[Rfam]
RNA sequence: AGUCAUAUGCUUGUCUCAAAGAUUAAGCCAUGCAUGUCUAAGUACAUACUCUUGCACAGUGAAACCGCGAAUGGCUCAUUAAAUCAGUUAUGGUUCAUUAGAUGGUACAAUCCUACUUGGAUAACUGUGGUAAUUCUAGAGCUAAUACAUGCAACGAAGCUCCGACCUCACGGGAAGAGCGCUUUUAUUAGAUCAAAACCGAUCGGUCGCAAGGCCGUCCUUUUUGGUGACUCUGGAUAACUUUGAGCAGAUCGCACGGGCUUGUCCCGGCGACGUGUCUUUCAAAUGUCUGCCCUAUCAACUGUCGAUGGUACGUGCUAUGCCUACCAUGGUUGUAACGGGUAACGGGGAAUCAGGGUUCGAUUCCGGAGAGGGAGCAUGAGAAACGGCUACCACAUCCAAGGAAGGCAGCAGGCGCGCAAAUUACCCACUCCUGGCACGGGGAGGUAGUGACGAAAAAUAACAAUACGGGACUCCUUCGAGGCCCCGUAAUUGGAAUGAGUACACUUUAAAUCCUUUAACGAGGAUCCAUUGGAGGGCAAGUCUGGUGCCAGCAGCCGCGGUAAUUCCAGCUCCAAUAGCGUAUAUUAAAGUUGCUG
Dot-bracket structure: (((.(((((((..(.((..((.....(((.(((..((....((....((.........))...)).))......(((.......(((..((..((....((((............(.((.....((.(((.....))).))......)).).......((((...((....))...))))....(((((........((((....(((....))).........)))).......)))))...........((((.((((.....))))))))...))))...))))..))).(((....(((....((((((.(.......).)))))))))......)))...((((((((....))))...))))))).((.(((..........))).)).(.((....)).)...)))))).).....(.(((...(((((...))))).)))).)...)).).....(((((((((.(((....)))..)))))).)))......(((.(...........)).)).........((((((.......((((.....((....)).......)))))))))).))))))))))..........

This 599-nucleotide part of an RNA from Magallana gigas belongs to the Rfam family "Eukaryotic small subunit ribosomal RNA".
The base pairs follow the family's consensus structure, which is taken from published work.
Lineage of the source: Eukaryota > Mollusca > Bivalvia > Pteriomorphia > Magallana.
Rfam 15.1 lists 75,755 matches to the family in 2,556 species.
Its family is annotated with structural constituent of ribosome and ribosome in the Gene Ontology.